[Rfam]
RNA sequence: UGAAUAUUUUUCGAUAUAGAACACUCAUGUCGGUAAAAUGAGUUUGAACCAUU
Numbered sequence: 001u002g003a004a005u006a007u008u009u010u011u012c013g014a015u016a017u018a019g020a021a022c023a024c025u026c027a028u029g030u031c032g033g034u035a036a037a038a039u040g041a042g043u044u045u046g047a048a049c050c051a052u053u
Stems, first nucleotide, its partner, number of pairs: 011033007
Notes
The family of this 53-nucleotide RNA sequence from Nasa triphylla is "Plastid-atpF group II-D1 intron". A reference for the family is Richter et al. (2023), "Retrograde signaling in plants: A critical review focusing on the GUN pathway and beyond", Plant Commun. Rfam describes the family as follows. Plastid atpF is a non-coding RNA (ncRNA) recognised in plastids. It has been reported in the intron group II-D1 region of ATP synthase (atpF) genes. Pairs were carried over by alignment from the consensus structure, which was predicted with LocARNA. Rfam 15.1 lists 1,372 matches to the family in 227 species. Taxonomically the source falls in Nasa (Eukaryota, Streptophyta, Embryophyta, Spermatophyta). It is one of the family's seed sequences.